Betaproteobacteria-1 RNA: a 121-nucleotide RNA sequence.

[Rfam]
RNA sequence: CGCGUUCUGUGGUCGGGGUCUCAACGGCAGCACAGAUAACGUGAUGUCCCUACUGUGGGAAAGUAUCCAACAGGGAUGCGGGUGGCGAAGGCAGCGCCCAAGAUACGCACGGCUACCGGGU
Numbered sequence: 001c002g003c004g005u006u007c008u009g010u011g012g013u014c015g016g017g018g019u020c021u022c023a024a025c026g027g028c029a030g031c032a033c034a035g036a037u038a039a040c041g042u043g044a045u046g047u048c049c050c051u052a053c054u055g056u057g058g059g060a061a062a063g064u065a066u067c068c069a070a071c072a073g074g075g076a077u078g079c080g081g082g083u084g085g086c087g088a089a090g091g092c093a094g095c096g097c098c099c100a101a102g103a104u105a106c107g108c109a110c111g112g113c114u115a116c117c118g119g120g121u
Stems, first nucleotide, its partner, number of pairs: 001043005007035005027056004047076005064105004080099004090117002093114003
By type it is a small RNA. Pairs were carried over by alignment from the consensus structure, which is taken from published work.